A member of the RNA family "Mammalian CPEB3 ribozyme" from Alligator mississippiensis, 77 nucleotides long. The source organism's lineage runs through Eukaryota, Craniata, Euteleostomi, Alligatoridae and Alligator.
RNA sequence: AGUCACAAGUUUAAGGCCAUAGCAGAAACGUUCAUGGCAUGGCCCUGCCAGAUUCUAACAAAUCAGCAGAUUCUGCU
Numbered sequence: 001a002g003u004c005a006c007a008a009g010u011u012u013a014a015g016g017c018c019a020u021a022g023c024a025g026a027a028a029c030g031u032u033c034a035u036g037g038c039a040u041g042g043c044c045c046u047g048c049c050a051g052a053u054u055c056u057a058a059c060a061a062a063u064c065a066g067c068a069g070a071u072u073c074u075g076c077u
Stems, first nucleotide, its partner, number of pairs: 015044004021077007028040001030038001049066001051064004
Dot-bracket structure: ..............[[[[..((((((((.(.......).)]]]]....(.((((......)))).)....)))))))